[Rfam]
RNA: Small nucleolar RNA SNORA1
Organism: Turnix velox
RNA sequence: UGCCUCGUUGUUCAGCAAAUGGGCACAACUUGCAGUGUGUCUGAAUUGAAAAACGUGGCUAGAAGAGUAACAGGUUGUGCUUUCCUCGCUGCAUUGUUAAUUGCAGUGGUGACAAUGAGACCUGUAACAGGC
Numbered sequence: 001u002g003c004c005u006c007g008u009u010g011u012u013c014a015g016c017a018a019a020u021g022g023g024c025a026c027a028a029c030u031u032g033c034a035g036u037g038u039g040u041c042u043g044a045a046u047u048g049a050a051a052a053a054c055g056u057g058g059c060u061a062g063a064a065g066a067g068u069a070a071c072a073g074g075u076u077g078u079g080c081u082u083u084c085c086u087c088g089c090u091g092c093a094u095u096g097u098u099a100a101u102u103g104c105a106g107u108g109g110u111g112a113c114a115a116u117g118a119g120a121c122c123u124g125u126a127a128c129a130g131g132c
Stems, first nucleotide, its partner, number of pairs: 002059003006055003021042007070125005084111001086109004